Rfam assigns this 97-nucleotide sequence from Rhodanobacter fulvus to the family "Fluoride riboswitch aptamer (crcB RNA motif)". It scores 40 bits against the family's covariance model. Taxonomically the source falls in Rhodanobacter fulvus (Bacteria, Pseudomonadati, Pseudomonadota, Lysobacterales). Rfam links the family to the GO terms response to fluoride and positive regulation of gene expression.
RNA sequence: GCCGCUCCGGGAGAUGGCAUGCCUCCCGUUCCCGCGACAGGGUCGAGGGAACCAACCGCCCCGCAUCACUGCAGGGGCUGAUGAUGCCUGCACCACC
Number, nucleotide and partner (000 for none) at each position: 001g000002c000003c000004g000005c000006u000007c000008c000009g000010g026011g025012a024013g023014a000015u000016g088017g087018c086019a085020u084021g000022c000023c013024u012025c011026c010027c000028g000029u000030u000031c000032c000033c000034g000035c000036g000037a000038c000039a000040g000041g000042g000043u000044c000045g000046a000047g000048g000049g000050a000051a000052c000053c000054a000055a000056c000057c000058g078059c077060c076061c075062c000063g000064c000065a000066u000067c000068a000069c000070u000071g000072c000073a000074g000075g061076g060077g059078c058079u000080g000081a000082u000083g000084a020085u019086g018087c017088c016089u000090g000091c000092a000093c000094c000095a000096c000097c000